The family of this 83-nucleotide RNA sequence from Podarcis muralis is "Small nucleolar RNA SNORD45". The literature on the family includes a 2002 paper in Mol Cell Biol by Galardi et al., "Purified box C/D snoRNPs are able to reproduce site-specific 2'-O-methylation of target RNA in vitro". The match comes from Rfam's covariance-model search (42 bits). The family's consensus secondary structure was predicted with PFOLD. Taxonomically the source falls in Podarcis (Eukaryota, Dipnotetrapodomorpha, Bifurcata, Unidentata).
[Rfam]
RNA sequence: GAUCUGUGAUGAUUUUUUGUAUAUAUCUGACAAUAAAGUUGAUGUCUGUCACCAUUUUAGCUCUAGAAUUACUCUGAGAUCUG
Number, nucleotide and partner (000 for none) at each position: 001g081002a080003u079004c078005u000006g000007u000008g000009a000010u000011g000012a000013u000014u000015u000016u000017u000018u000019g000020u000021a000022u000023a000024u000025a000026u000027c000028u000029g000030a000031c000032a000033a000034u000035a000036a000037a000038g000039u000040u000041g000042a000043u000044g000045u000046c000047u000048g000049u000050c000051a000052c000053c000054a000055u000056u000057u000058u000059a000060g000061c000062u000063c000064u000065a000066g000067a000068a000069u000070u000071a000072c000073u000074c000075u000076g000077a000078g004079a003080u002081c001082u000083g000